Background:
A member of the RNA family "Group I catalytic intron" from Hirsutella rhossiliensis, 335 nucleotides long. Rfam's curators write: Group I catalytic introns are large self-splicing ribozymes. They catalyse their own excision from mRNA, tRNA and rRNA precursors in a wide range of organisms. The core secondary structure consists of 9 paired regions (P1-P9). These fold to essentially two domains - the P4-P6 domain (formed from the stacking of P5, P4, P6 and P6a helices) and the P3-P9 domain (formed from the P8, P3, P7 and P9 helices). The secondary structure mark-up for this family represents only this conserved core. Group I catalytic introns often have long ORFs inserted in loop regions. The window size for this search is chosen to minimise search time and catch the small examples. A larger window size will find more matches.
RNA sequence: ACAGCAGCGUGAGAGGCGCCUGCUAGUGGGGACGCCGCGAGGCCAUCCCCGCGACAUCGUCAAAUUGCGGGGAGCUCCUAAAGCCGCGUGCUACCAAGCGGGCGCCGAAAGGCGGUCCGUGGCCGGGGUAACGACCUAGGGUACGGUAACAACGCACCGGAUGAACAAUGGACGAUCCGCAGCCAAGUCCUACCUCUCCCCCCCCCUUCCUCCGGGGGGGAGGAGACAGGGAUGCAGUUCAACGACUAGACGGCGAUGGGUUCCGCGCCCGGGACGCGGCAUGCGCACCCGGCGCGGGGCUUAAGAUAUAGUCUCGCCCCCCGCGAAAGCGGACG
Numbered sequence: 001a002c003a004g005c006a007g008c009g010u011g012a013g014a015g016g017c018g019c020c021u022g023c024u025a026g027u028g029g030g031g032a033c034g035c036c037g038c039g040a041g042g043c044c045a046u047c048c049c050c051g052c053g054a055c056a057u058c059g060u061c062a063a064a065u066u067g068c069g070g071g072g073a074g075c076u077c078c079u080a081a082a083g084c085c086g087c088g089u090g091c092u093a094c095c096a097a098g099c100g101g102g103c104g105c106c107g108a109a110a111g112g113c114g115g116u117c118c119g120u121g122g123c124c125g126g127g128g129u130a131a132c133g134a135c136c137u138a139g140g141g142u143a144c145g146g147u148a149a150c151a152a153c154g155c156a157c158c159g160g161a162u163g164a165a166c167a168a169u170g171g172a173c174g175a176u177c178c179g180c181a182g183c184c185a186a187g188u189c190c191u192a193c194c195u196c197u198c199c200c201c202c203c204c205c206c207u208u209c210c211u212c213c214g215g216g217g218g219g220g221a222g223g224a225g226a227c228a229g230g231g232a233u234g235c236a237g238u239u240c241a242a243c244g245a246c247u248a249g250a251c252g253g254c255g256a257u258g259g260g261u262u263c264c265g266c267g268c269c270c271g272g273g274a275c276g277c278g279g280c281a282u283g284c285g286c287a288c289c290c291g292g293c294g295c296g297g298g299g300c301u302u303a304a305g306a307u308a309u310a311g312u313c314u315c316g317c318c319c320c321c322c323g324c325g326a327a328a329g330c331g332g333a334c335g
Base pairs, nucleotide, nucleotide: 055258056257057256058255059254061252066181067180068179069178070177071176076172077171078170182238183237187233188232189231190230195226196225197224198223199222242314244313245312246311247310248309260300261299262298263297264296265295266294267293268292321332322331323330324329

The literature on the family includes a 1990 paper in Annu Rev Biochem by Cech, "Self-splicing of group I introns".